RNA sequence: CUUGUGGAUCGUUAUACAAACGAAAGUAGUUUGAAAUAGAUUUAUUUCUAACGAAAUCGGACGAGAUGAAGCAAGAA
Numbered sequence: 001c002u003u004g005u006g007g008a009u010c011g012u013u014a015u016a017c018a019a020a021c022g023a024a025a026g027u028a029g030u031u032u033g034a035a036a037u038a039g040a041u042u043u044a045u046u047u048c049u050a051a052c053g054a055a056a057u058c059g060g061a062c063g064a065g066a067u068g069a070a071g072c073a074a075g076a077a
Stems, first nucleotide, its partner, number of pairs: 001075005009064005021059003029052003034047005
This 77-nucleotide sequence belongs to the Rfam family "RAGATH-18 RNA". It is annotated as a small RNA. The sequence is in the family's curated seed alignment.